[Rfam]
RNA sequence: AUCAAUAAAUAUUAGUAGUGCUCCUAAUUAGUGCGGAGACUACGUUUAGCCGGCAUAGGAAUCAUAGCAGAAGUUAAGUAGGGGCCUCCUUAAAUUUCACUAUAUGCUGGGACCUCCUAAAGCCUUAAGUACUACCAAUAUAUUCUUGUUUAUAAUAAUGAUCUAAAAAUAGAUAUUAUAACCACCCCUGAUCCUUAAACCCUCACUAUGAACCGAAGGAAAAACAAAAGCUACGCCUGGCUGGGGGGGGUAGGGAGUAAAAAUCUUAAGGAUAUUACAAUGGACAAUCAGCAGGUAACCAAAUUAUAUUAAUUAUUAUAUAAAAGUAGGAUCCUCAGAGACUGCACGUGAUACUCUAUUAUUUUUUUAUAGAGAUGAUAUAGUCCGACCAAUAAUGAAAGUUAUUG
Numbered sequence: 001a002u003c004a005a006u007a008a009a010u011a012u013u014a015g016u017a018g019u020g021c022u023c024c025u026a027a028u029u030a031g032u033g034c035g036g037a038g039a040c041u042a043c044g045u046u047u048a049g050c051c052g053g054c055a056u057a058g059g060a061a062u063c064a065u066a067g068c069a070g071a072a073g074u075u076a077a078g079u080a081g082g083g084g085c086c087u088c089c090u091u092a093a094a095u096u097u098c099a100c101u102a103u104a105u106g107c108u109g110g111g112a113c114c115u116c117c118u119a120a121a122g123c124c125u126u127a128a129g130u131a132c133u134a135c136c137a138a139u140a141u142a143u144u145c146u147u148g149u150u151u152a153u154a155a156u157a158a159u160g161a162u163c164u165a166a167a168a169a170u171a172g173a174u175a176u177u178a179u180a181a182c183c184a185c186c187c188c189u190g191a192u193c194c195u196u197a198a199a200c201c202c203u204c205a206c207u208a209u210g211a212a213c214c215g216a217a218g219g220a221a222a223a224a225c226a227a228a229a230g231c232u233a234c235g236c237c238u239g240g241c242u243g244g245g246g247g248g249g250g251u252a253g254g255g256a257g258u259a260a261a262a263a264u265c266u267u268a269a270g271g272a273u274a275u276u277a278c279a280a281u282g283g284a285c286a287a288u289c290a291g292c293a294g295g296u297a298a299c300c301a302a303a304u305u306a307u308a309u310u311a312a313u314u315a316u317u318a319u320a321u322a323a324a325a326g327u328a329g330g331a332u333c334c335u336c337a338g339a340g341a342c343u344g345c346a347c348g349u350g351a352u353a354c355u356c357u358a359u360u361a362u363u364u365u366u367u368u369a370u371a372g373a374g375a376u377g378a379u380a381u382a383g384u385c386c387g388a389c390c391a392a393u394a395a396u397g398a399a400a401g402u403u404a405u406u407g
Stems, first nucleotide, its partner, number of pairs: 005025001008022001010020004095353001097351002100348001105293006115284003294334002299329001300326001305322005338386001340385005356372004361367001392405005
Shown here is a 407-nucleotide RNA sequence from Tetrapyrgos nigripes, a member of the family "Group I catalytic intron".
From the family's description: Group I catalytic introns are large self-splicing ribozymes.
NCBI's taxonomy places the organism under Eukaryota, Dikarya, Agaricomycotina, Agaricomycetidae, Tetrapyrgos.